[Rfam]
The record is a 71-nucleotide sequence from Patiria pectinifera, which matches "tRNA" in Rfam. NCBI's taxonomy places the organism under Eukaryota, Deuterostomia, Echinodermata, Valvatida, Patiria. The family's consensus secondary structure is taken from published work. Transfer RNA (tRNA) molecules are approximately 80 nucleotides in length. Their secondary structure includes four short double-helical elements and three loops (D, anti-codon, and T loops). Further hydrogen bonds mediate the characteristic L-shaped molecular structure. tRNAs have two regions of fundamental functional importance: the anti-codon, which is responsible for specific mRNA codon recognition, and the 3' end, to which the tRNAs corresponding amino acid is attached (by aminoacyl-tRNA synthetases). tRNAs cope with the degeneracy of the genetic code in two manners: having more than one tRNA (with a specific anti-codon) for a particular amino acid; and 'wobble' base-pairing, i.e. permitting non-standard base-pairing at the 3rd anti-codon position.
RNA sequence: UAGAAAGUAGUAUAACGGUAAAACCAAGAAUUUUGAUUUCUUAAAUAUAAGUUCAACUCUUAUCUUUCUAA
Numbered sequence: 001u002a003g004a005a006a007g008u009a010g011u012a013u014a015a016c017g018g019u020a021a022a023a024c025c026a027a028g029a030a031u032u033u034u035g036a037u038u039u040c041u042u043a044a045a046u047a048u049a050a051g052u053u054c055a056a057c058u059c060u061u062a063u064c065u066u067u068c069u070a071a
Stems, first nucleotide, its partner, number of pairs: 001070007010024002013021001026042005047063005